RNA sequence: GGUCUCGAGUAUCAGCGACAAGCCCCGGCUCGCUGGUCGGCAACCCUCCUCCUGCGGUGGGGUGCCCCGGGUGACGACCAGGUCCUGGCUACCUGCCCAGGGCAAGCGCUCGUC
Dot-bracket structure: ((((....(.((((((....((......)).)))))))(((..(((.((......))..))).))).........))))..(((((((.(....).)))))))...........

Shown here is a 114-nucleotide RNA sequence from Miniimonas arenae, a member of the family "SAM (S-adenosyl methionine) riboswitch aptamer". On this family, see Weinberg et al., RNA 2008: "The aptamer core of SAM-IV riboswitches mimics the ligand-binding site of SAM-I riboswitches". The organism belongs to Miniimonas, within Bacteria. The base pairs follow the family's consensus structure, which is taken from published work. It scores 104 bits against the family's covariance model.